[Rfam]
RNA sequence: CUGCCUGAAAUGAUGAGUUCACUUCAUGUCUCUUCUCUGAAAUCUUCCCUGGAGACACAAUUAACCUCGCUGAUCUGAUCAGGCUG
Numbered sequence: 001c002u003g004c005c006u007g008a009a010a011u012g013a014u015g016a017g018u019u020c021a022c023u024u025c026a027u028g029u030c031u032c033u034u035c036u037c038u039g040a041a042a043u044c045u046u047c048c049c050u051g052g053a054g055a056c057a058c059a060a061u062u063a064a065c066c067u068c069g070c071u072g073a074u075c076u077g078a079u080c081a082g083g084c085u086g
Stems, first nucleotide, its partner, number of pairs: 001086001003084003
Shown here is an 86-nucleotide sequence from Ornithorhynchus anatinus, a member of the family "Small nucleolar RNA SNORD111". Rfam classes the family as a C/D-box small nucleolar RNA. The literature on the family includes a 2002 paper in Mol Cell Biol by Galardi et al., "Purified box C/D snoRNPs are able to reproduce site-specific 2'-O-methylation of target RNA in vitro". The organism belongs to Ornithorhynchus, within Eukaryota. The family's consensus secondary structure was predicted with RNAalifold.